[Rfam]
A member of the RNA family "Group II catalytic intron D1-D4-1" from Sporomusa sphaeroides, 79 nucleotides long. The pairing is the family consensus, mapped onto this sequence. Rfam links the family to the GO term Group II intron splicing. Rfam 15.1 lists 2,508 matches to the family in 1,144 species. A reference for the family is Bonen and Vogel (2001), "The ins and outs of group II introns", Trends Genet. Lineage of the source: Bacteria > Bacillota > Negativicutes > Sporomusa > Sporomusa sphaeroides. A search with the family's covariance model found it, with a score of 69 bits.

RNA sequence: GAACCCAUGCAGUGAUGUAUGGCUAAAUUGCAAGAAGUCAGCAGAGGUCAUAGUACCGGAUUUUUUUUCCGGGAAGGAC
Numbered sequence: 001g002a003a004c005c006c007a008u009g010c011a012g013u014g015a016u017g018u019a020u021g022g023c024u025a026a027a028u029u030g031c032a033a034g035a036a037g038u039c040a041g042c043a044g045a046g047g048u049c050a051u052a053g054u055a056c057c058g059g060a061u062u063u064u065u066u067u068u069c070c071g072g073g074a075a076g077g078a079c
Stems, first nucleotide, its partner, number of pairs: 002024001005022007038045002047079003056072005